[Rfam]
RNA sequence: UUUCUAUCCAGAGAGGUGGAGGGACUGGCCCUAUGAAACCUCGGCAACAUUAUUGUGCCAAUUCCAGCAAGCGCUAGCUUGAAAGAUAGGAA
Numbered sequence: 001u002u003u004c005u006a007u008c009c010a011g012a013g014a015g016g017u018g019g020a021g022g023g024a025c026u027g028g029c030c031c032u033a034u035g036a037a038a039c040c041u042c043g044g045c046a047a048c049a050u051u052a053u054u055g056u057g058c059c060a061a062u063u064c065c066a067g068c069a070a071g072c073g074c075u076a077g078c079u080u081g082a083a084a085g086a087u088a089g090g091a092a
Stems, first nucleotide, its partner, number of pairs: 001092008013042005021031003025067004043059004048055002063084001068081005

The record is a 92-nucleotide sequence from Bacillus subtilis, which matches "SAM riboswitch aptamer (S box leader)" in Rfam. Rfam describes the family as follows. The SAM riboswitch is found upstream of a number of genes which code for proteins involved in methionine or cysteine biosynthesis in Gram-positive bacteria.